[Rfam]
RNA sequence: UGAAUCCCACCUAGUAAAGUCUAACCAACAACUAGUACUUAGAUCCUACGCCGAAGCAGUAAUGUUAGGUUUAAGUGUAAUCAAUGGAACAUUUAAGCUGGAAGUGUAUACUGAAGUUGUUAGCUGUGAUGGGCCGAAAUUGGAAAGGUCGAUGGUUUUGGAGAACCCGAAGACAACAUUAAAUAUAUUGUUAAUGGUGAGAUAUAUUUAGCUUUCCCGGGGUUGUAAGACCU
Number, nucleotide and partner (000 for none) at each position: 001u000002g000003a000004a000005u000006c000007c000008c000009a000010c000011c035012u034013a033014g032015u000016a000017a000018a000019g029020u028021c000022u200023a000024a198025c197026c000027a000028a020029c019030a000031a000032c014033u013034a012035g011036u000037a000038c087039u084040u000041a000042g082043a081044u080045c000046c077047u000048a072049c000050g070051c069052c068053g000054a066055a065056g000057c064058a063059g000060u000061a000062a000063u058064g057065u055066u054067a000068g052069g051070u050071u000072u048073a000074a000075g000076u000077g046078u000079a000080a044081u043082c042083a000084a039085u000086g000087g038088a000089a000090c000091a000092u000093u000094u000095a000096a000097g000098c000099u000100g000101g000102a000103a000104g000105u000106g000107u000108a000109u000110a000111c000112u000113g000114a000115a000116g000117u000118u000119g000120u000121u227122a000123g223124c222125u221126g000127u219128g218129a000130u000131g000132g000133g000134c000135c000136g000137a000138a000139a000140u000141u000142g217143g216144a215145a214146a213147g212148g174149u173150c172151g000152a000153u000154g167155g166156u165157u000158u000159u000160g000161g000162a000163g000164a000165a156166c155167c154168c000169g000170a000171a000172g150173a149174c148175a000176a000177c000178a000179u211180u210181a209182a208183a207184u206185a205186u204187a203188u202189u201190g000191u000192u000193a000194a000195u000196g000197g025198u024199g000200a022201g189202a188203u187204a186205u185206a184207u183208u182209u181210a180211g179212c147213u146214u145215u144216c143217c142218c128219g127220g000221g125222g124223u123224u000225g000226u000227a121228a000229g000230a000231c000232c000233u000
The record is a 233-nucleotide sequence from Haloplasma contractile, which matches "Group II catalytic intron D1-D4-6" in Rfam. The base pairs follow the family's consensus structure. The match comes from Rfam's covariance-model search (88 bits).